[Rfam]
c-di-AMP riboswitch aptamer (ydaO/yuaA leader): a 156-nucleotide RNA sequence from Oculatella sp. FACHB-28. This family represents a conserved RNA structure found upstream of the ydaO and yuaA genes in Bacillus subtilis and related genes in other bacteria.

Nucleotides: 156
Base pairs, nucleotide, nucleotide: 012140013139014138018054019053020052021051022050023049055136056135057134058133059132060131065072066071073121074120075119081097082096083095100115101114102113103112
Number, partner (000 for none) and nucleotide at each position: 001000u002000g003000a004000a005000u006000a007000g008000g009000u010000c011000a012140g013139c014138u015000u016000a017000a018054u019053c020052c021051a022050g023049g024000u025000c026000u027000u028000g029000c030000g031000a032000u033000u034000u035000u036000c037000u038000u039000u040000a041000a042000c043000g044000c045000a046000c047000u048000u049023c050022c051021u052020g053019g054018a055136a056135c057134g058133g059132a060131g061000g062000a063000a064000c065072c066071a067000a068000a069000u070000u071066u072065g073121g074120g075119g076000c077000u078000u079000a080000u081097c082096u083095c084000u085000g086000a087000g088000g089000u090000u091000a092000a093000u094000u095083g096082a097081g098000a099000a100115g101114g102113a103112c104000a105000u106000c107000u108000c109000u110000c111000a112103g113102u114101c115100c116000u117000a118000g119075c120074c121073c122000g123000u124000c125000a126000g127000c128000u129000a130000a131060c132059u133058u134057c135056g136055u137000c138014g139013g140012c141000a142000u143000u144000g145000a146000g147000g148000g149000g150000a151000g152000a153000u154000u155000g156000a